Shown here is an 85-nucleotide sequence from Allobosea spartocytisi, a member of the family "chrB-a RNA". The family's consensus secondary structure is taken from published work.
RNA sequence: GCCAAGGGGUUCAUCGCGACGACCCCGUGAGGCUUCGGCCCAAUGCUCGCGUCCAACUUCCUUGCUUCAGGAUGGACGCACCAUG
Dot-bracket structure: .....(((((...........)))))......................((((((...................))))))......